The record is a 102-nucleotide RNA sequence from Rhodobaculum claviforme, which matches "TPP riboswitch aptamer (THI element)" in Rfam.
The family's consensus secondary structure is taken from published work.
The organism belongs to Rhodobaculum, within Bacteria.

[Rfam]
RNA sequence: CGACAACCGUUGGGGUGCCCCGUCGCGGGGCUGAGAGGCGCGAGCCAACCCAUCGAACCUGAUCCGGAUCAUGCCGGCGUAGGGAACGGUGCACGAAGGACA
Numbered sequence: 001c002g003a004c005a006a007c008c009g010u011u012g013g014g015g016u017g018c019c020c021c022g023u024c025g026c027g028g029g030g031c032u033g034a035g036a037g038g039c040g041c042g043a044g045c046c047a048a049c050c051c052a053u054c055g056a057a058c059c060u061g062a063u064c065c066g067g068a069u070c071a072u073g074c075c076g077g078c079g080u081a082g083g084g085a086a087c088g089g090u091g092c093a094c095g096a097a098g099g100a101c102a
Base pairs, nucleotide, nucleotide: 006090007089008088009087010086011052012051013050014049017031018030019029020028021027038045039044058083059082060081061080064077065076066075067074